Rfam assigns this 163-nucleotide sequence from Neomonachus schauinslandi to the family "U1 spliceosomal RNA". U1 is a small nuclear RNA (snRNA) component of the spliceosome (involved in pre-mRNA splicing). The source organism's lineage runs through Eukaryota, Deuterostomia, Amniota, Caniformia and Neomonachus. It is annotated as a spliceosomal small nuclear RNA.
[Rfam]
RNA sequence: AGACUUACCCGGCAGGGGAAAACCAUGAUCAUGAAGGUGAUUUUCCAGGGUGAGACCCAUCCAUUGUUGCACUCUGGGUGUGCUGACAUUUUUGAUUUCCCCAAAUGUGGGAGACUUGGUUGCAUAAUUUAUGGUAGUGGGGGACUGUGUGCACUUUCUUCCC
Numbered sequence: 001a002g003a004c005u006u007a008c009c010c011g012g013c014a015g016g017g018g019a020a021a022a023c024c025a026u027g028a029u030c031a032u033g034a035a036g037g038u039g040a041u042u043u044u045c046c047a048g049g050g051u052g053a054g055a056c057c058c059a060u061c062c063a064u065u066g067u068u069g070c071a072c073u074c075u076g077g078g079u080g081u082g083c084u085g086a087c088a089u090u091u092u093u094g095a096u097u098u099c100c101c102c103a104a105a106u107g108u109g110g111g112a113g114a115c116u117u118g119g120u121u122g123c124a125u126a127a128u129u130u131a132u133g134g135u136a137g138u139g140g141g142g143g144a145c146u147g148u149g150u151g152c153a154c155u156u157u158c159u160u161c162c163c
Stems, first nucleotide, its partner, number of pairs: 012123004017046006024039003047091003052087001054084001056082001058080005093118003096114003100110002139162006147154002